[Rfam]
RNA: ZMP/ZTP riboswitch aptamer (pfl RNA motif)
RNA sequence: ACAUUCUUUUAUCCCUGACGGGUAAAUGUGGAAGAAACCACAGUGGGAUAAGAGUAUAUAUUAGCCGACCGUCUGGGCAGCAUUU
Dot-bracket structure: ..((.(((((((..(.[[[[[......((((......))))...)..))))))).))....(.(((..]]]]]..))).).....